[Rfam]
RNA sequence: AUAUGCAUAGGUGAUGGAGCUCACCUUAAGCAUUGCAUACUGCAAUUGAUGGCUCCUACUUAGAU
Numbered sequence: 001a002u003a004u005g006c007a008u009a010g011g012u013g014a015u016g017g018a019g020c021u022c023a024c025c026u027u028a029a030g031c032a033u034u035g036c037a038u039a040c041u042g043c044a045a046u047u048g049a050u051g052g053c054u055c056c057u058a059c060u061u062a063g064a065u
Stems, first nucleotide, its partner, number of pairs: 010025004016056006032046004
Source information: This 65-nucleotide RNA sequence from Crassaminicella thermophila belongs to the Rfam family "Fluoride riboswitch aptamer (crcB RNA motif)". A search with the family's covariance model found it, with a score of 46 bits. The base pairs follow the family's consensus structure, which is taken from published work.